[Rfam]
RNA sequence: AGAAGGGCUUCCACGGGUAACGCCGUUGGGGGCCUUUUUCUUUUGC
Numbered sequence: 001a002g003a004a005g006g007g008c009u010u011c012c013a014c015g016g017g018u019a020a021c022g023c024c025g026u027u028g029g030g031g032g033c034c035u036u037u038u039u040c041u042u043u044u045g046c
Base pairs, nucleotide, nucleotide: 005035006034007033008032009031010030011029012028015026016023
Dot-bracket structure: ....((((((((..((......)..).))))))))...........
Rfam assigns this 46-nucleotide RNA sequence from Pseudorhizobium banfieldiae to the family "ctRNA". This family represents a group of ctRNAs (or counter-transcribed RNAs) from p42d and related plasmids. ctRNAs are small, highly structured, antisense sequences which are involved in negative regulation. The family has 10 seed sequences and 245 matches in Rfam 15.1. NCBI's taxonomy places the organism under Bacteria, Pseudomonadati, Alphaproteobacteria, Hyphomicrobiales, Pseudorhizobium. It is annotated as an antisense RNA. The literature on the family includes a 2004 paper in Mol Microbiol by Venkova-Canova et al., "Two discrete elements are required for the replication of a repABC plasmid: an antisense RNA and a stem-loop structure".